[Rfam]
This 149-nucleotide RNA from Erinaceus europaeus belongs to the Rfam family "U12 minor spliceosomal RNA". The organism belongs to Erinaceus, within Eukaryota. Pairs were carried over by alignment from the consensus structure. The match comes from Rfam's covariance-model search (124 bits). It is annotated as a spliceosomal small nuclear RNA. The literature on the family includes a 1997 paper in Trends Biochem Sci by Tarn and Steitz, "Pre-mRNA splicing: the discovery of a new spliceosome doubles the challenge".
RNA sequence: AUGCCUUAAACUUAUGAGUAAGGAAAAUAAUGAUUCAAGGUGAUGCCGAAUCCUCACUGCUAAAGUGAGACAAAUUUUUGAGUGGCUAAAGGUCACCCCUAAGGUGACCCGCCUACUUUGUGGGCUGCCUGGGAGCUGCAAUCUGCCCA
Numbered sequence: 001a002u003g004c005c006u007u008a009a010a011c012u013u014a015u016g017a018g019u020a021a022g023g024a025a026a027a028u029a030a031u032g033a034u035u036c037a038a039g040g041u042g043a044u045g046c047c048g049a050a051u052c053c054u055c056a057c058u059g060c061u062a063a064a065g066u067g068a069g070a071c072a073a074a075u076u077u078u079u080g081a082g083u084g085g086c087u088a089a090a091g092g093u094c095a096c097c098c099c100u101a102a103g104g105u106g107a108c109c110c111g112c113c114u115a116c117u118u119u120g121u122g123g124g125c126u127g128c129c130u131g132g133g134a135g136c137u138g139c140a141a142u143c144u145g146c147c148c149a
Stems, first nucleotide, its partner, number of pairs: 004023005032052005039046001053069005083149003087145001090144004096138001099133002102130005108124005